A member of the RNA family "bantam microRNA precursor family" from Cimex lectularius, 84 nucleotides long. Gene Ontology terms of the family: miRNA-mediated post-transcriptional gene silencing and RISC complex.

RNA sequence: UCCUCAGAACGAAACUGGCUUUCCCAGUGGUCUACCAGAGUAAUUUCACUCCUCUGAGAUCAUUGUGAAAGCUGAUUUUGUGCA
Numbered sequence: 001u002c003c004u005c006a007g008a009a010c011g012a013a014a015c016u017g018g019c020u021u022u023c024c025c026a027g028u029g030g031u032c033u034a035c036c037a038g039a040g041u042a043a044u045u046u047c048a049c050u051c052c053u054c055u056g057a058g059a060u061c062a063u064u065g066u067g068a069a070a071g072c073u074g075a076u077u078u079u080g081u082g083c084a
Stems, first nucleotide, its partner, number of pairs: 009081006016074008025065001028062006
Its Rfam clan is "mir-81 clan". On this family, see Marco et al., Genome Biol Evol 2010: "Functional shifts in insect microRNA evolution". A search with the family's covariance model found it, with a score of 66 bits. The family's consensus secondary structure was predicted with RNAalifold.